[Rfam]
RNA sequence: UAGUCCGGUAAGAUUCCGGAGUCCAUGUUUUAUGGAUAACGCUUAUACUUAUGACGGAGUUACGAGAAGCCGUUGCUUCACUCUGAAAUCAUAAGCGCAAGCCAAGCGCGAAAGACUUGGAA
Numbered sequence: 001u002a003g004u005c006c007g008g009u010a011a012g013a014u015u016c017c018g019g020a021g022u023c024c025a026u027g028u029u030u031u032a033u034g035g036a037u038a039a040c041g042c043u044u045a046u047a048c049u050u051a052u053g054a055c056g057g058a059g060u061u062a063c064g065a066g067a068a069g070c071c072g073u074u075g076c077u078u079c080a081c082u083c084u085g086a087a088a089u090c091a092u093a094a095g096c097g098c099a100a101g102c103c104a105a106g107c108g109c110g111a112a113a114g115a116c117u118u119g120g121a122a
Base pairs, nucleotide, nucleotide: 004020005019006018007017008016021037022036023035024034025033026032048095049094050093051092052091053090054089058084059083068077069076070075103119104118105117106116109114
Record summary
Rfam assigns this 122-nucleotide sequence to the family "RAGATH-36 RNA". The sequence is in the family's curated seed alignment. Rfam classes the family as a small RNA. The family's consensus secondary structure is taken from published work.